About this RNA:
This 149-nucleotide RNA sequence from Lentibacillus amyloliquefaciens belongs to the Rfam family "FMN riboswitch aptamer (RFN element)". From the family's description: The RFN element is a highly conserved domain that is found frequently in the 5'-untranslated regions of prokaryotic mRNAs that encode for flavin mononucleotide (FMN) biosynthesis and transport proteins. This element is a metabolite-dependent riboswitch that directly binds FMN in the absence of proteins. The family's consensus secondary structure is taken from published work. The source organism's lineage runs through Bacteria, Bacillati, Caryophanales, Bacillaceae and Lentibacillus.
[Rfam]
RNA sequence: UCACAUCUUCGGGGCAGGGUGCAAUUCCCGACCGACGGUAAGGGGCAUGAAUAGGUGCUUCAAGUCCGUGACCCGCUUUGCUAAGCUCAGCGGUGGAUCCGGUGCAAGUCCGGAACCGACAGUUACAGUCUGGAUGGGAGAAGAUGAGA
Number, nucleotide and partner (000 for none) at each position: 001u000002c000003a000004c146005a145006u144007c143008u142009u141010c140011g000012g000013g000014g000015c000016a000017g029018g028019g027020u000021g000022c000023a000024a000025u000026u000027c019028c018029c017030g000031a129032c128033c118034g117035a069036c068037g067038g066039u000040a000041a000042g000043g000044g000045g000046c000047a000048u000049g000050a000051a000052u000053a000054g000055g000056u000057g000058c000059u000060u000061c000062a000063a000064g116065u115066c038067c037068g036069u035070g000071a000072c000073c093074c092075g000076c000077u000078u000079u000080g000081c000082u000083a000084a000085g000086c000087u000088c000089a000090g000091c000092g074093g073094u000095g000096g000097a000098u114099c113100c112101g111102g110103u000104g000105c000106a000107a000108g000109u000110c102111c101112g100113g099114a098115a065116c064117c034118g033119a000120c132121a131122g130123u000124u000125a000126c000127a000128g032129u031130c122131u121132g120133g000134a000135u000136g000137g000138g000139a000140g010141a009142a008143g007144a006145u005146g004147a000148g000149a000